[Rfam]
The family of this 63-nucleotide RNA sequence from Bombyx mori is "mir-2774 microRNA precursor family". A reference for the family is Liu et al. (2010), "MicroRNAs of Bombyx mori identified by Solexa sequencing", BMC Genomics.
RNA sequence: ACCACUGACCGUCGGUCUACCGAACAAUACCACCAGCUCGGUGGAAGAUUUUCCAUCCAUCGU
Numbered sequence: 001a002c003c004a005c006u007g008a009c010c011g012u013c014g015g016u017c018u019a020c021c022g023a024a025c026a027a028u029a030c031c032a033c034c035a036g037c038u039c040g041g042u043g044g045a046a047g048a049u050u051u052u053c054c055a056u057c058c059a060u061c062g063u
Base pairs, nucleotide, nucleotide: 007053008052011049012048013047016045017044018043019042020041021040022039023038025036
Background: NCBI's taxonomy places the organism under Eukaryota, Opisthokonta, Neoptera, Glossata, Bombyx. A search with the family's covariance model found it, with a score of 52 bits.